[Rfam]
RNA sequence: CCCAAAGUUAUUGAGUUUGGCUUGGCCGCCAAACCCAAUGCUAUUGGGUGACCUUUGGGUUCGCUACCCAGCAGAACCCAAUAACGUUGGGUU
Number, nucleotide and partner (000 for none) at each position: 001c091002c090003c000004a088005a087006a000007g085008u084009u083010a082011u081012u080013g079014a000015g077016u076017u075018u074019g000020g072021c071022u070023u000024g068025g067026c000027c000028g064029c063030c000031a000032a000033a049034c048035c047036c046037a045038a044039u043040g000041c000042u000043a039044u038045u037046g036047g035048g034049u033050g000051a000052c000053c000054u000055u000056u000057g000058g000059g000060u000061u000062c000063g029064c028065u000066a000067c025068c024069c000070a022071g021072c020073a000074g018075a017076a016077c015078c000079c013080a012081a011082u010083a009084a008085c007086g000087u005088u004089g000090g002091g001092u000093u000
The family of this 93-nucleotide RNA from Populus alba is "MIR474 microRNA precursor family". The literature on the family includes a 2005 paper in Plant Cell by Lu et al., "Novel and mechanical stress-responsive MicroRNAs in Populus trichocarpa that are absent from Arabidopsis". Rfam 15.1 lists 69 matches to the family in 15 species. Rfam links the family to the GO terms RISC complex and miRNA-mediated post-transcriptional gene silencing.